[Rfam]
This 230-nucleotide part of an RNA belongs to the Rfam family "Bacterial large subunit ribosomal RNA".
For this family Rfam cites "The comparative RNA web (CRW) site: an online database of comparative sequence and structure information for ribosomal, intron, and other RNAs" (Cannone et al., BMC Bioinformatics, 2002).
The match comes from Rfam's covariance-model search (2533 bits).
RNA sequence: GAGUUAAUCUAUGAAGCAAGCUUAAGCCGUUAGGUGUAGGCGUAGCGAAAGCGAGUCUAAAUAGGGCGUUUUAGUUUUAUGGAUUAGACCCGAAACCAGGUGAUCUAGUCAUGACCAGAUUGAAGGUGUAGUAAAACACACUGGAGGAUCGAACUAGUUAAUGUUGCAACAUUAUUGGAUGAGUUUGUGAUUAGGGGUGAAAGGCCAAUCAAACUUGGAAAUAGCUGGUU
Numbered sequence: 001g002a003g004u005u006a007a008u009c010u011a012u013g014a015a016g017c018a019a020g021c022u023u024a025a026g027c028c029g030u031u032a033g034g035u036g037u038a039g040g041c042g043u044a045g046c047g048a049a050a051g052c053g054a055g056u057c058u059a060a061a062u063a064g065g066g067c068g069u070u071u072u073a074g075u076u077u078u079a080u081g082g083a084u085u086a087g088a089c090c091c092g093a094a095a096c097c098a099g100g101u102g103a104u105c106u107a108g109u110c111a112u113g114a115c116c117a118g119a120u121u122g123a124a125g126g127u128g129u130a131g132u133a134a135a136a137c138a139c140a141c142u143g144g145a146g147g148a149u150c151g152a153a154c155u156a157g158u159u160a161a162u163g164u165u166g167c168a169a170c171a172u173u174a175u176u177g178g179a180u181g182a183g184u185u186u187g188u189g190a191u192u193a194g195g196g197g198u199g200a201a202a203g204g205c206c207a208a209u210c211a212a213a214c215u216u217g218g219a220a221a222u223a224g225c226u227g228g229u230u
Stems, first nucleotide, its partner, number of pairs: 005086013020041004026035003045052002055067004089228002092225001096218006105194009114184002116181001118150004125142005154178003159174004196206003